[Rfam]
RNA: sRNA-Xcc1
Organism: Neisseria animalis
RNA sequence: GGCGGGUCGAUAGCCGUAAAUACAAUACCCGAAGGGGAAUAGCGGCAGCCGUCUAGUUGCGGUAGUUGAGACCCGCCCACCUCAA
Numbered sequence: 001g002g003c004g005g006g007u008c009g010a011u012a013g014c015c016g017u018a019a020a021u022a023c024a025a026u027a028c029c030c031g032a033a034g035g036g037g038a039a040u041a042g043c044g045g046c047a048g049c050c051g052u053c054u055a056g057u058u059g060c061g062g063u064a065g066u067u068g069a070g071a072c073c074c075g076c077c078c079a080c081c082u083c084a085a
Base pairs, nucleotide, nucleotide: 001077002076003075004074005073006072007071013046014045015044016043019040028036029035030034048063049062050061051060052059